Rfam assigns this 133-nucleotide sequence from Cebus imitator to the family "Small nucleolar RNA SNORA9".
NCBI's taxonomy places the organism under Eukaryota, Craniata, Vertebrata, Dipnotetrapodomorpha, Cebus.
Rfam describes the family as follows. ACA9 is a member of the H/ACA class of snoRNA that guide the sites of modification of uridines to pseudouridines.
The family is grouped with related families in Rfam's "SNORA9 clan".
The family's RNA type in Rfam is H/ACA-box small nucleolar RNA.
It scores 136 bits against the family's covariance model.
[Rfam]
RNA sequence: UAGGAAGCCUCCAAUGUGCUUGGGUCUGCAGUGAUCCUAUGCAUUCCUUCAGUGCUUGCUAGAACAGUUUUGAAACAGUUUGAGGCCUUGCCCUGCUCCAUCCAGAGCAAGGUUACAGAAAUGUCAGACAAUG
Numbered sequence: 001u002a003g004g005a006a007g008c009c010u011c012c013a014a015u016g017u018g019c020u021u022g023g024g025u026c027u028g029c030a031g032u033g034a035u036c037c038u039a040u041g042c043a044u045u046c047c048u049u050c051a052g053u054g055c056u057u058g059c060u061a062g063a064a065c066a067g068u069u070u071u072g073a074a075a076c077a078g079u080u081u082g083a084g085g086c087c088u089u090g091c092c093c094u095g096c097u098c099c100a101u102c103c104a105g106a107g108c109a110a111g112g113u114u115a116c117a118g119a120a121a122u123g124u125c126a127g128a129c130a131a132u133g
Stems, first nucleotide, its partner, number of pairs: 003059001005057004017043003022037005071126003075122001086112006093105003